[Rfam]
RNA sequence: GGGCAGGCCCGGCGCGGCGAAGCCUUUCAAACCCCGCCAGGAUCGAAAGAUAGCAACGGUAAGGAAGUGUCUUCGGGUGCCGCCGUCAGCCUGCCCGGA
Dot-bracket structure: ...(((((.((((((..(((((.(((((.....(((.....(((....))).....)))...)))))...))))).)...)))))...)))))......

The record is a 99-nucleotide RNA sequence from an Anaerolineales bacterium, which matches "Bacterial small signal recognition particle RNA" in Rfam. Rfam's curators write: The signal recognition particle (SRP) is a universally conserved ribonucleoprotein involved in the co-translational targeting of proteins to membranes. It is annotated as a non-coding RNA gene. The organism belongs to Anaerolineales, within Bacteria. A search with the family's covariance model found it, with a score of 68 bits.